The record is a 175-nucleotide sequence from Dysgonomonas gade, which matches "Bacteroidales-1 6S-Bacteroidales RNA suggested" in Rfam. The family's RNA type in Rfam is small RNA. The source organism's lineage runs through Bacteria, Bacteroidia, Dysgonomonadaceae, Dysgonomonas and Dysgonomonas gade. About the family: Bacteroidales-1 was first reported in a comparative genomics-based approach of genome and metagenome sequences from Weinberg et al. 2010 In a high-resolution transcriptome map study of Bacteroides thetaiotaomicron, Ryan et al. 2020 report this sRNA as 6S RNA homologue of Bacteroides, in the study they obtain evidence of small product RNAs (pRNAs) related to 6S function.
RNA sequence: AGUCGUGUUGGUCGAUUGGGAAGCUCAUCAAUUAAUAAAAUAUCCGAGACAAGCUUUUGAUUCUAAUGGCGGGCCACACCUCCGGGUUGCUUAGCACGGUGGAUUACAAAGGGAUCGAAGCGCUCAAAUCCUGUUUUACGGAGUUUCGGCUAUAUCCACCAAUACGACUUUUAUA
Numbered sequence: 001a002g003u004c005g006u007g008u009u010g011g012u013c014g015a016u017u018g019g020g021a022a023g024c025u026c027a028u029c030a031a032u033u034a035a036u037a038a039a040a041u042a043u044c045c046g047a048g049a050c051a052a053g054c055u056u057u058u059g060a061u062u063c064u065a066a067u068g069g070c071g072g073g074c075c076a077c078a079c080c081u082c083c084g085g086g087u088u089g090c091u092u093a094g095c096a097c098g099g100u101g102g103a104u105u106a107c108a109a110a111g112g113g114a115u116c117g118a119a120g121c122g123c124u125c126a127a128a129u130c131c132u133g134u135u136u137u138a139c140g141g142a143g144u145u146u147c148g149g150c151u152a153u154a155u156c157c158a159c160c161a162a163u164a165c166g167a168c169u170u171u172u173a174u175a
Stems, first nucleotide, its partner, number of pairs: 053121003057118008067108002074102004078087003088096003